[Rfam]
RNA sequence: AUUCAAAGAUGAGGAGCAUCAAUCAUCAGUAAAUGUUAGACGGCCUUGAUUUCUUUUUUGCUAAUAAUUAUCUGAAAAGGAACACUAUUCCCUACCUGCUAGUAGCUAACAUUGAAAGGGUGCGAUGCCGAAGUGAUUUCUCUUAGCAGAGGGAGAUCAUUGGACUUUCUUGUUAAUAGCAAAGAGUCUGUCAUUAUUGUUAGAUAAUGGAGUGCAUCACUUGUA
Numbered sequence: 001a002u003u004c005a006a007a008g009a010u011g012a013g014g015a016g017c018a019u020c021a022a023u024c025a026u027c028a029g030u031a032a033a034u035g036u037u038a039g040a041c042g043g044c045c046u047u048g049a050u051u052u053c054u055u056u057u058u059u060g061c062u063a064a065u066a067a068u069u070a071u072c073u074g075a076a077a078a079g080g081a082a083c084a085c086u087a088u089u090c091c092c093u094a095c096c097u098g099c100u101a102g103u104a105g106c107u108a109a110c111a112u113u114g115a116a117a118g119g120g121u122g123c124g125a126u127g128c129c130g131a132a133g134u135g136a137u138u139u140c141u142c143u144u145a146g147c148a149g150a151g152g153g154a155g156a157u158c159a160u161u162g163g164a165c166u167u168u169c170u171u172g173u174u175a176a177u178a179g180c181a182a183a184g185a186g187u188c189u190g191u192c193a194u195u196a197u198u199g200u201u202a203g204a205u206a207a208u209g210g211a212g213u214g215c216a217u218c219a220c221u222u223g224u225a
Stems, first nucleotide, its partner, number of pairs: 008218004016128005024120001032113008132161012162189007170182004191210007

A member of the RNA family "Lysine riboswitch aptamer" from Staphylococcus sp. HMSC071G07, 225 nucleotides long.